RNA sequence: CUAGGGGUAACCGAAAACCUGUAAAAAAGAGUAGGCG
Dot-bracket structure: .((((.....[[.....))))............]]..